[Rfam]
RNA sequence: AAACCCUUGACUACACUCUGAAAUCUACCAAACUGCCCCGUGGUUUAUUUCAAUUUUUGUGCAAGGAAGAGCAAUCCGACCCUAUACUCACCGCGGCAUCCUGGUCCUUGGAUGUCGAGGUCCAUCAACACGGCGCCUACAU
Numbered sequence: 001a002a003a004c005c006c007u008u009g010a011c012u013a014c015a016c017u018c019u020g021a022a023a024u025c026u027a028c029c030a031a032a033c034u035g036c037c038c039c040g041u042g043g044u045u046u047a048u049u050u051c052a053a054u055u056u057u058u059g060u061g062c063a064a065g066g067a068a069g070a071g072c073a074a075u076c077c078g079a080c081c082c083u084a085u086a087c088u089c090a091c092c093g094c095g096g097c098a099u100c101c102u103g104g105u106c107c108u109u110g111g112a113u114g115u116c117g118a119g120g121u122c123c124a125u126c127a128a129c130a131c132g133g134c135g136c137c138u139a140c141a142u
Stems, first nucleotide, its partner, number of pairs: 007064003019052006027044003078137001080135001081132001091120002094117001096115006